[Rfam]
RNA sequence: CUUGAUGGAGCCCAGCAGCAGCGGCUGCUCCGCCGGCCGGUCCUGGCCGUAGGUGGCGAGGAGGGCCUGCGCCUC
Numbered sequence: 001c002u003u004g005a006u007g008g009a010g011c012c013c014a015g016c017a018g019c020a021g022c023g024g025c026u027g028c029u030c031c032g033c034c035g036g037c038c039g040g041u042c043c044u045g046g047c048c049g050u051a052g053g054u055g056g057c058g059a060g061g062a063g064g065g066c067c068u069g070c071g072c073c074u075c
Stems, first nucleotide, its partner, number of pairs: 014026003031071003038065001043060002047056003